[Rfam]
RNA sequence: UGCAGUACAAUAUUCAGAGUGGUAGCAGUCACUUUAUUCUAAAGUAACUGUGGCAUUUCUGAAUAGAGUAAUGUUCA
Numbered sequence: 001u002g003c004a005g006u007a008c009a010a011u012a013u014u015c016a017g018a019g020u021g022g023u024a025g026c027a028g029u030c031a032c033u034u035u036a037u038u039c040u041a042a043a044g045u046a047a048c049u050g051u052g053g054c055a056u057u058u059c060u061g062a063a064u065a066g067a068g069u070a071a072u073g074u075u076c077a
Base pairs, nucleotide, nucleotide: 002074003073004072006070007069008068011065012064013063014062015061016060017059018058019057020055021054025051026050027049028048029047031045032044033043
RNA: mir-881 microRNA precursor family
Organism: Rattus norvegicus